The family of this 62-nucleotide RNA from Crenobacter luteus is "Fluoride riboswitch aptamer (crcB RNA motif)". The base pairs follow the family's consensus structure, which is taken from published work. Taxonomically the source falls in Crenobacter (Bacteria, Pseudomonadota, Neisseriales, Neisseriaceae).
[Rfam]
RNA sequence: CGCAGCGUGGGAGAUGGCAUGCCUCCCUAACCGCCUUUACGGCUGAUGAUGCCUACACGCGA
Numbered sequence: 001c002g003c004a005g006c007g008u009g010g011g012a013g014a015u016g017g018c019a020u021g022c023c024u025c026c027c028u029a030a031c032c033g034c035c036u037u038u039a040c041g042g043c044u045g046a047u048g049a050u051g052c053c054u055a056c057a058c059g060c061g062a
Base pairs, nucleotide, nucleotide: 010026011025012024013023016053017052018051019050020049033043034042035041